[Rfam]
RNA sequence: GGUGCGUACCGGGCCCCUCUGGCGAGAAUGUCUCGUGAUGUCGGACGUAUCG
Numbered sequence: 001g002g003u004g005c006g007u008a009c010c011g012g013g014c015c016c017c018u019c020u021g022g023c024g025a026g027a028a029u030g031u032c033u034c035g036u037g038a039u040g041u042c043g044g045a046c047g048u049a050u051c052g
Stems, first nucleotide, its partner, number of pairs: 006046002009044004022036005

terC RNA: a 52-nucleotide RNA from Rhizorhabdus wittichii. Rfam classes the family as a cis-regulatory element. Taxonomically the source falls in Rhizorhabdus wittichii (Bacteria, Pseudomonadati, Pseudomonadota, Rhizorhabdus). The base pairs follow the family's consensus structure, which is taken from published work.